[Rfam]
RNA: SscA RNA
RNA sequence: UGGACUCAUGAGGCUCUCUUGCAAAAAGCGGGUUUCCCGCUCAAGAGAGCCGAGGUUACAGAAAGCUUUAAAAACCUAUCCCAGUCAAUAAGGUUAGGC
Numbered sequence: 001u002g003g004a005c006u007c008a009u010g011a012g013g014c015u016c017u018c019u020u021g022c023a024a025a026a027a028g029c030g031g032g033u034u035u036c037c038c039g040c041u042c043a044a045g046a047g048a049g050c051c052g053a054g055g056u057u058a059c060a061g062a063a064a065g066c067u068u069u070a071a072a073a074a075c076c077u078a079u080c081c082c083a084g085u086c087a088a089u090a091a092g093g094u095u096a097g098g099c
Stems, first nucleotide, its partner, number of pairs: 004057001012051010027041006